[Rfam]
RNA sequence: GGAACCCCUGCUUGGAAAGGCAAAAGCCAUGCCACCAAUAGCGAGUCUUGGAGCGACAAUGGUAACAUUCUCGUUUAAGCGUAGACAGUUAGGAUGCAGGCCUGAAAGUGAUUGAGCCUCGAAAAUUAGGAGAACGGGAAGGUCGACGAGCUUUACUACUCGGAAGACAACACUCGCUUAGACGUAUAGGGCAAGUCUGAGGGAGGUUGCUCGGGGUCGAAGAGCC
Dot-bracket structure: ...........((((...((.(...[[..).)).)))).(((..((((((((((((.((((....)))).))))))...)).)))).)))......................((.((((((..............((.((.(((..((((........))))...)))....(((.(((((((.......]]..))))))).))).)).))))))))).)......
The record is a 226-nucleotide RNA from Paenibacillaceae bacterium GAS479, which matches "Group II catalytic intron D1-D4-6" in Rfam. It scores 139 bits against the family's covariance model. Rfam links the family to the GO term Group II intron splicing. Rfam describes the family as follows. Group II introns are found in rRNA, tRNA and mRNA of organelles in fungi, plants and protists, and also in mRNA in bacteria.